[Rfam]
RNA: RNase MRP
RNA sequence: GUUCGUGCUGAAGGCCUGUUUCCUAGGCUACAGACGGGGGACUAGUUCCUUAUUCGUGCCUAGGGGAAAGUCCCCGGACCACUGGCAGAGAGUGCCACGUGCGCGCGCACGUCGACUAUUCCCUGCUUAUCACAGAAAUCCGCCAAGAAGCAAUCCCGUGUAGGGCGGGGGAGCUGAGCGGCGUGUUGCAGGGGUGUCAUCAGUCAGCUCUUCUAGUUACGCAGGCAGUGCGCUUGCGCGCACUAACUACACGGGGCUCAUUCUCAGUGCGGC
Numbered sequence: 001g002u003u004c005g006u007g008c009u010g011a012a013g014g015c016c017u018g019u020u021u022c023c024u025a026g027g028c029u030a031c032a033g034a035c036g037g038g039g040g041a042c043u044a045g046u047u048c049c050u051u052a053u054u055c056g057u058g059c060c061u062a063g064g065g066g067a068a069a070g071u072c073c074c075c076g077g078a079c080c081a082c083u084g085g086c087a088g089a090g091a092g093u094g095c096c097a098c099g100u101g102c103g104c105g106c107g108c109a110c111g112u113c114g115a116c117u118a119u120u121c122c123c124u125g126c127u128u129a130u131c132a133c134a135g136a137a138a139u140c141c142g143c144c145a146a147g148a149a150g151c152a153a154u155c156c157c158g159u160g161u162a163g164g165g166c167g168g169g170g171g172a173g174c175u176g177a178g179c180g181g182c183g184u185g186u187u188g189c190a191g192g193g194g195u196g197u198c199a200u201c202a203g204u205c206a207g208c209u210c211u212u213c214u215a216g217u218u219a220c221g222c223a224g225g226c227a228g229u230g231c232g233c234u235u236g237c238g239c240g241c242a243c244u245a246a247c248u249a250c251a252c253g254g255g256g257c258u259c260a261u262u263c264u265c266a267g268u269g270c271g272g273c
Base pairs, nucleotide, nucleotide: 003272004271005270006269007268008267009266010265011264014226015225016224017223018222019221022064023063024062025061026060027059028058037051038050039049040048041047069258070257072256073255074254075253084096085095086094087093097112098111099110100109101108102107114198115197116196121193122192123191124190125189126188131185132184133183140181141180142179143178165174166173228243229242230241231240232239233238